tRNA: a 73-nucleotide RNA from Rhodospirillum rubrum. NCBI's taxonomy places the organism under Bacteria, Rhodospirillales, Rhodospirillaceae, Rhodospirillum, Rhodospirillum rubrum. The match comes from Rfam's covariance-model search (66 bits). The base pairs follow the family's consensus structure, which is taken from published work.
[Rfam]
RNA sequence: GGGCGGUUAGCUCAGCUGGGAGAGCAUCUGGUUUACACCCAGAGGGUCGGCGGUUCGAACCCGUCACCGCCCA
Numbered sequence: 001g002g003g004c005g006g007u008u009a010g011c012u013c014a015g016c017u018g019g020g021a022g023a024g025c026a027u028c029u030g031g032u033u034u035a036c037a038c039c040c041a042g043a044g045g046g047u048c049g050g051c052g053g054u055u056c057g058a059a060c061c062c063g064u065c066a067c068c069g070c071c072c073a
Stems, first nucleotide, its partner, number of pairs: 001072007010025004027043005049065005